RNA sequence: GGGCGGUUGAUGCGUCCCGCGCGGUACAAGCCGGAGGACAUAUGGGGUGCUGCACGGGCCGGAUCGCCCCGGUGGCGGAGC
Numbered sequence: 001g002g003g004c005g006g007u008u009g010a011u012g013c014g015u016c017c018c019g020c021g022c023g024g025u026a027c028a029a030g031c032c033g034g035a036g037g038a039c040a041u042a043u044g045g046g047g048u049g050c051u052g053c054a055c056g057g058g059c060c061g062g063a064u065c066g067c068c069c070c071g072g073u074g075g076c077g078g079a080g081c
Stems, first nucleotide, its partner, number of pairs: 001022001003020004055071001056069004